[Rfam]
Nucleotides: 109
Stems, first nucleotide, its partner, number of pairs: 001019004007034007035092004039087008049061005064076004095109005
Number, partner (000 for none) and nucleotide at each position: 001019u002018g003017g004016u005000g006000a007034u008033g009032u010031c011030u012029c013028c014000u015000u016004g017003c018002c019001g020000u021000u022000a023000u024000c025000u026000a027000u028013g029012g030011a031010g032009g033008u034007a035092c036091u037090c038089g039087g040086u041085c042084a043083u044082g045081c046080u047000g048000u049061g050060g051059g052058u053057c054000u055000u056000u057053g058052a059051c060050c061049u062000u063000a064076g065075a066074c067073g068000c069000u070000a071000g072000u073067c074066g075065u076064c077000a078000a079000u080046a081045g082044u083043g084042u085041g086040a087039u088000g089038u090037g091036a092035g093000g094000a095109c096108g097107g098106g099105u100000u101000a102000g103000a104000u105099g106098c107097c108096c109095g